[Rfam]
Rfam assigns this 70-nucleotide RNA from Culex quinquefasciatus to the family "bantam microRNA precursor family". The family has 28 seed sequences and 182 matches in Rfam 15.1. It is one of the family's seed sequences. Its family is annotated with RISC complex and miRNA-mediated post-transcriptional gene silencing in the Gene Ontology.
RNA sequence: AGAACCGGUUUUCAUUUUCGAUCUGACUUAUUUGAUUUAACAGAGUGAGAUCAUUUUGAAAGCUGAUUUU
Numbered sequence: 001a002g003a004a005c006c007g008g009u010u011u012u013c014a015u016u017u018u019c020g021a022u023c024u025g026a027c028u029u030a031u032u033u034g035a036u037u038u039a040a041c042a043g044a045g046u047g048a049g050a051u052c053a054u055u056u057u058g059a060a061a062g063c064u065g066a067u068u069u070u
Stems, first nucleotide, its partner, number of pairs: 001070004006065009018053001020052005